[Rfam]
RNA sequence: GCUGGCAUAAUGAUGAGACCUUUGCCGUUUACCCAUCUGAAUGUUUUCUGAUGUGUAUCUUUGAAUCUGAAAUGCCAGU
Number, nucleotide and partner (000 for none) at each position: 001g079002c078003u077004g076005g075006c074007a073008u000009a000010a000011u000012g000013a000014u000015g000016a000017g000018a000019c000020c000021u000022u000023u000024g000025c000026c000027g000028u000029u000030u000031a000032c000033c000034c000035a000036u000037c000038u000039g000040a000041a000042u000043g000044u000045u000046u000047u000048c000049u000050g000051a000052u000053g000054u000055g000056u000057a000058u000059c000060u000061u000062u000063g000064a000065a000066u000067c000068u000069g000070a000071a000072a000073u007074g006075c005076c004077a003078g002079u001